[Rfam]
RNA sequence: ACCGAUAAAGGCAAACCCAUCGUGAGAUGGGGGCGCAAAGUCAUGGGUCCCCCGUUGGAUCGCCAGACCGUCGAAG
Numbered sequence: 001a002c003c004g005a006u007a008a009a010g011g012c013a014a015a016c017c018c019a020u021c022g023u024g025a026g027a028u029g030g031g032g033g034c035g036c037a038a039a040g041u042c043a044u045g046g047g048u049c050c051c052c053c054g055u056u057g058g059a060u061c062g063c064c065a066g067a068c069c070g071u072c073g074a075a076g
Stems, first nucleotide, its partner, number of pairs: 003073002011036002016031006034062001040068003044065003047060003
Dot-bracket structure: ..((......((...((((((....))))))..[))...(((.((((((........))).]))))))...))...
RNA: c-di-GMP-I-GGC riboswitch aptamer